[Rfam]
RNA sequence: GGAUGAGGACGGCCUCACCAUCUUGGUCAUCAUGCGGGACGGCCCGG
Numbered sequence: 001g002g003a004u005g006a007g008g009a010c011g012g013c014c015u016c017a018c019c020a021u022c023u024u025g026g027u028c029a030u031c032a033u034g035c036g037g038g039a040c041g042g043c044c045c046g047g
Stems, first nucleotide, its partner, number of pairs: 002019001004017005035046004
Rfam assigns this 47-nucleotide RNA sequence from Roseovarius halotolerans to the family "Guanidine-II riboswitch aptamer (mini-ykkC)". A reference for the family is Sherlock et al. (2017), "Biochemical Validation of a Second Guanidine Riboswitch Class in Bacteria", Biochemistry. It scores 35 bits against the family's covariance model. The family's consensus secondary structure is taken from published work. The organism belongs to Roseovarius, within Bacteria.